The family of this 55-nucleotide RNA sequence from Arboricoccus pini is "terC RNA". A search with the family's covariance model found it, with a score of 49 bits. Pairs were carried over by alignment from the consensus structure, which is taken from published work. The family's RNA type in Rfam is cis-regulatory element. Rfam 15.1 lists 1,112 matches to the family in 772 species. NCBI's taxonomy places the organism under Bacteria, Pseudomonadati, Alphaproteobacteria, Geminicoccales, Arboricoccus.

RNA sequence: UCCGGUGACCGGGCCCCUCUGGCAAGCAGAACUGCUUGUGAUGUCGGCAUCUGGA
Numbered sequence: 001u002c003c004g005g006u007g008a009c010c011g012g013g014c015c016c017c018u019c020u021g022g023c024a025a026g027c028a029g030a031a032c033u034g035c036u037u038g039u040g041a042u043g044u045c046g047g048c049a050u051c052u053g054g055a
Stems, first nucleotide, its partner, number of pairs: 006049002009047004022039007